[Rfam]
RNA: Mason-Pfizer monkey virus packaging signal
RNA sequence: UGGCAUCCAAACGUGUGGCCUGGAUACUGGGGACAACGUGAGGGAGACGACGGAGGAAAAAGGGGUGCGCACCCACUCAAAGAAUUUGGAGACGCCGCGGGAGCCUGCCACGACUGAGCCGAAGGUAAGUUGGUCGUUCAAUCAUGGGGCAAGAAUUAAGUCAGCAUCACAUUUAUAUGAUGCAGUUAAGAGAAGCUCUACAGGCAAGAGGAGUAAAGGUUAAAACUGAGGAUUUAUUUCAUUUCUUUGAUUUUGUAAAGGACAUUUGUCCCU
Numbered sequence: 001u002g003g004c005a006u007c008c009a010a011a012c013g014u015g016u017g018g019c020c021u022g023g024a025u026a027c028u029g030g031g032g033a034c035a036a037c038g039u040g041a042g043g044g045a046g047a048c049g050a051c052g053g054a055g056g057a058a059a060a061a062g063g064g065g066u067g068c069g070c071a072c073c074c075a076c077u078c079a080a081a082g083a084a085u086u087u088g089g090a091g092a093c094g095c096c097g098c099g100g101g102a103g104c105c106u107g108c109c110a111c112g113a114c115u116g117a118g119c120c121g122a123a124g125g126u127a128a129g130u131u132g133g134u135c136g137u138u139c140a141a142u143c144a145u146g147g148g149g150c151a152a153g154a155a156u157u158a159a160g161u162c163a164g165c166a167u168c169a170c171a172u173u174u175a176u177a178u179g180a181u182g183c184a185g186u187u188a189a190g191a192g193a194a195g196c197u198c199u200a201c202a203g204g205c206a207a208g209a210g211g212a213g214u215a216a217a218g219g220u221u222a223a224a225a226c227u228g229a230g231g232a233u234u235u236a237u238u239u240c241a242u243u244u245c246u247u248u249g250a251u252u253u254u255g256u257a258a259a260g261g262a263c264a265u266u267u268g269u270c271c272c273u
Base pairs, nucleotide, nucleotide: 006032007031008030013027014026015025037049038048039047085125086123087122093116096112097111099109100108130152131151132150135149137148138147139146140145157200158199160196161195208248209247210246211245212244213243217235218234219233220232221231258273260271261270262269263268